[Rfam]
Small nucleolar RNA SNORA73 family: a 176-nucleotide sequence from Vombatus ursinus. Pairs were carried over by alignment from the consensus structure, which is taken from published work. Rfam classes the family as an H/ACA-box small nucleolar RNA. Its family is annotated with nucleolus and RNA processing in the Gene Ontology. About the family: U17 (SNORA73A and SNORA73B) also known as E1 belongs to the H/ACA class of small nucleolar RNAs (snoRNAs). Vertebrate U17 is intron-encoded and ranges in length from 200-230 nucleotides, longer than most snoRNAs. It is one of the most abundant snoRNAs in human cells and is essential for the cleavage of pre-rRNA within the 5' external transcribed spacer (ETS). This cleavage leads to the formation of 18S rRNA. Regions of the U17 RNA are complementary to rRNA and act as guides for RNA/RNA interactions, although these regions do not seem to be well conserved between organisms.
Nucleotides: 176
Base pairs, nucleotide, nucleotide: 001103002102003101005098006097007041008040009039010038011037013033014032015031017028019026020025044095045094046093047092053088054087055086056085057082060079061078062075130168131167132166133165134164146154147153148152
Number, partner (000 for none) and nucleotide at each position: 001103u002102c003101a004000a005098g006097u007041a008040g009039a010038u011037g012000c013033u014032c015031g016000g017028g018000u019026a020025g021000u022000u023000g024000a025020c026019u027000c028017u029000g030000c031015c032014g033013g034000u035000u036000c037011u038010g039009u040008c041007u042000g043000a044095g045094u046093g047092g048000u049000c050000c051000g052000a053088g054087g055086g056085a057082g058000c059000a060079c061078a062075g063000g064000g065000c066000u067000c068000u069000g070000c071000c072000c073000u074000g075062u076000g077000a078061u079060g080000g081000a082057c083000a084000g085056u086055c087054c088053c089000a090000u091000u092047c093046c094045a095044u096000a097006a098005u099000g100000c101003u102002g103001g104000a105000g106000a107000g108000c109000a110000a111000a112000c113000c114000a115000g116000a117000c118000u119000u120000u121000c122000u123000g124000u125000c126000u127000g128000c129000a130168u131167c132166u133165g134164u135000u136000c137000a138000u139000u140000c141000u142000a143000a144000a145000c146154c147153u148152c149000u150000a151000g152148g153147a154146g155000a156000c157000a158000a159000g160000c161000c162000a163000u164134a165133c166132a167131g168130g169000a170000a171000a172000c173000a174000a175000u176000a